[Rfam]
RNA: Norovirus cis-acting replication element (CRE)
Organism: Norovirus norwalkense
RNA sequence: AGUGGCAGUCCCCACCACCUGAAGAAGAACGACCACUGGAAUGGAGACUCUU
Dot-bracket structure: ...((...(((...(((...(..(........)..))))...)))....)).
Numbered sequence: 001a002g003u004g005g006c007a008g009u010c011c012c013c014a015c016c017a018c019c020u021g022a023a024g025a026a027g028a029a030c031g032a033c034c035a036c037u038g039g040a041a042u043g044g045a046g047a048c049u050c051u052u
Stems, first nucleotide, its partner, number of pairs: 004051002009045003015039003021036001024033001